About this RNA
Shown here is an 82-nucleotide sequence from Homo sapiens, a member of the family "mir-1265 microRNA precursor family". It is one of the family's seed sequences.
RNA sequence: UGGUUUGGGACUCAGGAUGUGGUCAAGUGUUGUUAAGGCAUGUUCAGGAACAAUACUUGACCACAUUUUGAAUUCCAAACCA
Numbered sequence: 001u002g003g004u005u006u007g008g009g010a011c012u013c014a015g016g017a018u019g020u021g022g023u024c025a026a027g028u029g030u031u032g033u034u035a036a037g038g039c040a041u042g043u044u045c046a047g048g049a050a051c052a053a054u055a056c057u058u059g060a061c062c063a064c065a066u067u068u069u070g071a072a073u074u075c076c077a078a079a080c081c082a
Stems, first nucleotide, its partner, number of pairs: 002081009012071023039047001
Dot-bracket structure: .(((((((((.(((((((((((((((((((((((....(.......).))))))))))))))))))))))).))))))))).
Annotation:
For this family Rfam cites "Computational identification of novel microRNA homologs in the chimpanzee genome" (Baev et al., Comput Biol Chem, 2009). Lineage of the source: Eukaryota > Vertebrata > Euteleostomi > Sarcopterygii > Homo.